[Rfam]
Background:
This 152-nucleotide RNA from Providencia heimbachae belongs to the Rfam family "CpoB/ybgF ICR thermometer". Pairs were carried over by alignment from the consensus structure. Imprinting control region from upstream of cpoB/ybgF (tol/pal system protein). The source organism's lineage runs through Bacteria, Pseudomonadota, Gammaproteobacteria, Morganellaceae and Providencia heimbachae.
RNA sequence: CCAAGUUUCACUGGUUUCUUACGGUAAAGAAAAACCAGCUGUGUUAGGUCAUACUGAAGCAGACUACGCGAAAAACCGUCGUGCAGUCAUUGCAUACUAAUAGAUAAGCGAAAUUAUCUAUUAUGAACAGUAACUUCAGACACUUACUAGUC
Numbered sequence: 001c002c003a004a005g006u007u008u009c010a011c012u013g014g015u016u017u018c019u020u021a022c023g024g025u026a027a028a029g030a031a032a033a034a035c036c037a038g039c040u041g042u043g044u045u046a047g048g049u050c051a052u053a054c055u056g057a058a059g060c061a062g063a064c065u066a067c068g069c070g071a072a073a074a075a076c077c078g079u080c081g082u083g084c085a086g087u088c089a090u091u092g093c094a095u096a097c098u099a100a101u102a103g104a105u106a107a108g109c110g111a112a113a114u115u116a117u118c119u120a121u122u123a124u125g126a127a128c129a130g131u132a133a134c135u136u137c138a139g140a141c142a143c144u145u146a147c148u149a150g151u152c
Stems, first nucleotide, its partner, number of pairs: 001047001003045002007041001014035004019030002055150001057148001062143001065140001068137001075131002078128001079126005086117002089114002